[Rfam]
RNA sequence: AUUACUUGAGGGCAGAACAGGCAGCUGCCACGCCACUUUGUGGUCUUUCAAGAGAUGUAGGGGUGCCAACCUACCAAGUAAU
Numbered sequence: 001a002u003u004a005c006u007u008g009a010g011g012g013c014a015g016a017a018c019a020g021g022c023a024g025c026u027g028c029c030a031c032g033c034c035a036c037u038u039u040g041u042g043g044u045c046u047u048u049c050a051a052g053a054g055a056u057g058u059a060g061g062g063g064u065g066c067c068a069a070c071c072u073a074c075c076a077a078g079u080a081a082u
Stems, first nucleotide, its partner, number of pairs: 001082008011029005020067004031052001032044004057074005
The record is an 82-nucleotide RNA from Desulfitobacterium hafniense, which matches "skipping-rope RNA" in Rfam.
The family's consensus secondary structure is taken from published work.
It is annotated as a small RNA.